Shown here is a 95-nucleotide RNA from Pseudoflavitalea sp. G-6-1-2, a member of the family "TPP riboswitch aptamer (THI element)". A search with the family's covariance model found it, with a score of 70 bits. NCBI's taxonomy places the organism under Bacteria, Pseudomonadati, Bacteroidota, Chitinophagia, Pseudoflavitalea.
RNA sequence: AUUAUUGCAUCGGGGUGCUAAUUCACUUUAGCUGAGAUGAUACCCGGGAACCUGAUCUGGUUAAAACCAGCGGAGGGAAUGCAAGGUGAUAACUG
Numbered sequence: 001a002u003u004a005u006u007g008c009a010u011c012g013g014g015g016u017g018c019u020a021a022u023u024c025a026c027u028u029u030a031g032c033u034g035a036g037a038u039g040a041u042a043c044c045c046g047g048g049a050a051c052c053u054g055a056u057c058u059g060g061u062u063a064a065a066a067c068c069a070g071c072g073g074a075g076g077g078a079a080u081g082c083a084a085g086g087u088g089a090u091a092a093c094u095g
Stems, first nucleotide, its partner, number of pairs: 006083005011046004016040001017032005051076003057070004